[Rfam]
RNA sequence: GCGUGUUAAUGACAGACUGACUCUAAACUCUCUACAGGAGCGAGCAGUUUUGAUGCCUCACUC
Number, nucleotide and partner (000 for none) at each position: 001g063002c000003g061004u060005g059006u000007u000008a000009a000010u000011g000012a000013c000014a050015g049016a048017c047018u046019g045020a000021c044022u043023c042024u000025a000026a000027a000028c000029u040030c000031u038032c000033u000034a000035c000036a000037g000038g031039a000040g029041c000042g023043a022044g021045c019046a018047g017048u016049u015050u014051u000052g000053a000054u000055g000056c000057c000058u000059c005060a004061c003062u000063c001
The family of this 63-nucleotide RNA sequence from Pangasianodon hypophthalmus is "Selenocysteine insertion sequence 1". Rfam links the family to the GO term selenocysteine incorporation. It scores 36 bits against the family's covariance model.